RNA sequence: UUUCGCGUCCGGCUUGUCCUGCAGGAGCUUGUUGCCCACCGCGUGCACCAGGUGGGUCUUGCCCAGGCCCACGCCGCCGUA
Numbered sequence: 001u002u003u004c005g006c007g008u009c010c011g012g013c014u015u016g017u018c019c020u021g022c023a024g025g026a027g028c029u030u031g032u033u034g035c036c037c038a039c040c041g042c043g044u045g046c047a048c049c050a051g052g053u054g055g056g057u058c059u060u061g062c063c064c065a066g067g068c069c070c071a072c073g074c075c076g077c078c079g080u081a
Base pairs, nucleotide, nucleotide: 004043005042006041007040011036012035013034016032017031021028051078052077053076054075056074057073061072
RNA: antisense RNA of dnaA mRNA